[Rfam]
RNA sequence: UUGUGGCGCGUGGCAGUGCGACUAGCUCCUUGUAACUCCCCCAGGGUCGGAAGACAGCAAGGGCAUCCGGUUGUAGCAGUGCGAUACUGUCAUGCUUUU
Numbered sequence: 001u002u003g004u005g006g007c008g009c010g011u012g013g014c015a016g017u018g019c020g021a022c023u024a025g026c027u028c029c030u031u032g033u034a035a036c037u038c039c040c041c042c043a044g045g046g047u048c049g050g051a052a053g054a055c056a057g058c059a060a061g062g063g064c065a066u067c068c069g070g071u072u073g074u075a076g077c078a079g080u081g082c083g084a085u086a087c088u089g090u091c092a093u094g095c096u097u098u099u
Stems, first nucleotide, its partner, number of pairs: 008095011019083002021080002
A member of the RNA family "Bacteroidales small SRP" from Microscilla marina, 99 nucleotides long.
Clan: SRP clan.